[Rfam]
RNA sequence: UCGUCGAGGAGUUGCGGGCAGAUGAGGUGGACGUGCGAGUCGACGGCCCCGGCGGUGAGGAUCUUGCCGUUGCCGGACAGGAUCUCGGUGGACGGGCCGAUGACGAUGUCCACGCCGUCCAUCGUGUCGGGGUUGCCGGCCUUGCCGAUGGCGGCGACGCGGCCGUCUCGGACGGCGACGUCGGCCUUGAUCACGCCCCAGUGGUCGAGAAUCACAGCGCCGGUGAUGACGAGGUCGGCGGCGCCGUCGGCGCGGGUGGUGCGGGCCUGGCCCAUCGACUCGCGG
Dot-bracket structure: (((.((((..(((((((..(.......(((..(..((......)).).)))...(((.......)))..)..))((..(((.(....((((.(.(((.((.((((.........).)))..))..)))..).)))).).)))..))....)))))......((((..(((.((..........((..((........(........).....))..))..(.(....((...((.........)).))....).)...)).)))...)))).......)))))))
The family of this 285-nucleotide RNA sequence from [Actinomadura] parvosata is "5' ureB small RNA".
Rfam links the family to the GO term negative regulation of gene expression.
The match comes from Rfam's covariance-model search (75 bits).
A reference for the family is Wen et al. (2013), "Helicobacter pylori 5'ureB-sRNA, a cis-encoded antisense small RNA, negatively regulates ureAB expression by transcription termination", J Bacteriol.